Ascomycota telomerase RNA: a 211-nucleotide part of an RNA from Fusarium albosuccineum. The base pairs follow the family's consensus structure.
[Rfam]
RNA sequence: UCCCCCACAGUUCUCCGGCCCUCGUUUUCCGCAAGGAAUGUCUAUUGCAGACCCCUCUUCUGACUGGCAAACCACAAUAUGCCGCUCUCGAGCCUGUAACAGGACCUCUUGAUGCCGCAGCUGGAUUAUUGUGGCCACACGGCGUCUGUAGAGUCGCCCCAGUUAAGAUCUGAAGGGAAUGAGACGUCGGAACUUAACCCUAAGAAGAUAU
Dot-bracket structure: ........(((...((((........................................................................................................................................................................)))).))).................
Clan: Telomerase clan.